[Rfam]
RNA sequence: AGCUUUGUGCAGUGGCAGUAUCGCAGCAACUGAGGUUUAUCCUAGGCGUGAUUAUAGCUAAUUGAAAACUUUUCCCAAUACCCCGCCUUGAUGACUUACAAUAUAGUUAGCAUUGACAUUUUUUGGCAGUCUCUAUGGAGA
Number, nucleotide and partner (000 for none) at each position: 001a000002g000003c000004u000005u000006u000007g000008u000009g000010c000011a000012g000013u000014g000015g000016c000017a000018g000019u000020a052021u051022c050023g049024c048025a000026g047027c046028a000029a000030c000031u000032g000033a000034g042035g041036u000037u000038u000039a000040u000041c035042c034043u000044a000045g000046g027047c026048g024049u023050g022051a021052u020053u000054a000055u000056a000057g000058c000059u000060a000061a000062u000063u000064g000065a000066a000067a000068a000069c000070u000071u000072u000073u000074c000075c000076c000077a000078a000079u000080a000081c000082c000083c000084c000085g117086c000087c115088u000089u112090g111091a000092u109093g108094a107095c106096u105097u000098a000099c000100a000101a000102u000103a000104u000105a096106g095107u094108u093109a092110g000111c090112a089113u000114u000115g087116a000117c085118a000119u000120u000121u000122u000123u000124u000125g000126g000127c000128a000129g000130u141131c140132u139133c138134u000135a000136u000137g000138g133139a132140g131141a130
This 141-nucleotide RNA sequence from Theropithecus gelada belongs to the Rfam family "U4 spliceosomal RNA". A search with the family's covariance model found it, with a score of 98 bits. The family's consensus secondary structure is taken from published work.